[Rfam]
Shown here is a 77-nucleotide RNA sequence from Sphingobium wenxiniae, a member of the family "c-di-GMP-I-GGC riboswitch aptamer". Taxonomically the source falls in Sphingobium wenxiniae (Bacteria, Pseudomonadati, Alphaproteobacteria, Sphingobiaceae).
RNA sequence: UGAAAAAAUGGCAAACCGCCGGUGACGGCGGGACGCAAAACCUCCGGUCUCCCAGGGAGAUAGCGGGGUUGCUGAAG
Number, nucleotide and partner (000 for none) at each position: 001u077002g000003a000004a073005a000006a000007a000008a000009u000010g000011g036012c035013a000014a000015a000016c031017c030018g029019c028020c027021g026022g000023u000024g000025a000026c021027g020028g019029c018030g017031g016032g000033a000034c063035g012036c011037a000038a000039a070040a069041c068042c067043u000044c066045c065046g064047g061048u060049c059050u000051c000052c000053c000054a000055g000056g000057g000058a000059g049060a048061u047062a000063g034064c046065g045066g044067g042068g041069u040070u039071g000072c000073u004074g000075a000076a000077g001